[Rfam]
RNA sequence: UGGGCGGUAAACCACCCAAGGACCUGAAAGACGAAGAACGGGGGAAGAACUACUGCCCACCCGCCCCUCCCCCCGCGUGUGGGAGCGCGGUCACUCACGCGAGUGAAUAUGCCAACUCGACGCGGUUUGAGACCGGUUGUGUGCCCUACGCUCAGCGACACCACCCAACCGUCCGCAGAAAUGCGUCGGCCCCCGCCGGGAUUGCCGUCCCAGUGCGAGGGCCUACCAACCAGGAAGUAGCACCUUCCCG
Numbered sequence: 001u002g003g004g005c006g007g008u009a010a011a012c013c014a015c016c017c018a019a020g021g022a023c024c025u026g027a028a029a030g031a032c033g034a035a036g037a038a039c040g041g042g043g044g045a046a047g048a049a050c051u052a053c054u055g056c057c058c059a060c061c062c063g064c065c066c067c068u069c070c071c072c073c074c075g076c077g078u079g080u081g082g083g084a085g086c087g088c089g090g091u092c093a094c095u096c097a098c099g100c101g102a103g104u105g106a107a108u109a110u111g112c113c114a115a116c117u118c119g120a121c122g123c124g125g126u127u128u129g130a131g132a133c134c135g136g137u138u139g140u141g142u143g144c145c146c147u148a149c150g151c152u153c154a155g156c157g158a159c160a161c162c163a164c165c166c167a168a169c170c171g172u173c174c175g176c177a178g179a180a181a182u183g184c185g186u187c188g189g190c191c192c193c194c195g196c197c198g199g200g201a202u203u204g205c206c207g208u209c210c211c212a213g214u215g216c217g218a219g220g221g222c223c224u225a226c227c228a229a230c231c232a233g234g235a236a237g238u239a240g241c242a243c244c245u246u247c248c249c250g
Base pairs, nucleotide, nucleotide: 004076005075006074091106092105093104094103095102096101121155124152188223189222190221191220192219194217195216196215198211199210200209201208233248234247235246236245237244
Source information
Shown here is a 250-nucleotide sequence from Streptomyces sp. R302, a member of the family "Streptomyces sRNA 4677". The family has 12 seed sequences and 563 matches in Rfam 15.1. For this family Rfam cites "Complex intra-operonic dynamics mediated by a small RNA in Streptomyces coelicolor" (Hindra et al., PLoS One, 2014). NCBI's taxonomy places the organism under Bacteria, Bacillati, Kitasatosporales, Streptomycetaceae, Streptomyces. About the family: Located in the intergenic region between anti-sigma factor SCO4677 gene and a putative regulatory protein gene SCO4676. scr4677 expression requires the SCO4677 activity and scr4677 sRNA itself seem to affect the levels of the SCO4676-associated transcripts.